[Rfam]
RNA sequence: UGCCGAUGAUGAAAUUCGAAAUAGCUUCUCUCAAAACAUUCGCAGUGGCCGCCCGAGAGUUUUCGCCAUGCCCGGCUUGAGAACUGAUGCGGUUUAAUCCUUCCUUGGAUGUCUGAGGCG
Numbered sequence: 001u002g003c004c005g006a007u008g009a010u011g012a013a014a015u016u017c018g019a020a021a022u023a024g025c026u027u028c029u030c031u032c033a034a035a036a037c038a039u040u041c042g043c044a045g046u047g048g049c050c051g052c053c054c055g056a057g058a059g060u061u062u063u064c065g066c067c068a069u070g071c072c073c074g075g076c077u078u079g080a081g082a083a084c085u086g087a088u089g090c091g092g093u094u095u096a097a098u099c100c101u102u103c104c105u106u107g108g109a110u111g112u113c114u115g116a117g118g119c120g
Stems, first nucleotide, its partner, number of pairs: 001120004059084006
Rfam assigns this 120-nucleotide sequence from Chara braunii to the family "Small nucleolar RNA SNORD14". The match comes from Rfam's covariance-model search (78 bits). Pairs were carried over by alignment from the consensus structure, which was predicted with PFOLD. From the family's description: U14 small nucleolar RNA (U14 snoRNA) is required for early cleavages of eukaryotic precursor rRNAs. Rfam classes the family as a C/D-box small nucleolar RNA.